[Rfam]
RNA sequence: UGCCCUGGCUCAGUUAUCACAGUGCUGAUGCUGUCCGUUCUCAAGGUACAGUACUGUGAUAACUGAAGGAUGGCA
Numbered sequence: 001u002g003c004c005c006u007g008g009c010u011c012a013g014u015u016a017u018c019a020c021a022g023u024g025c026u027g028a029u030g031c032u033g034u035c036c037g038u039u040c041u042c043a044a045g046g047u048a049c050a051g052u053a054c055u056g057u058g059a060u061a062a063c064u065g066a067a068g069g070a071u072g073g074c075a
Stems, first nucleotide, its partner, number of pairs: 011065015027049001029048004
A member of the RNA family "mir-101 microRNA precursor family" from Monodelphis domestica, 75 nucleotides long. The base pairs follow the family's consensus structure, which was predicted with RNAalifold.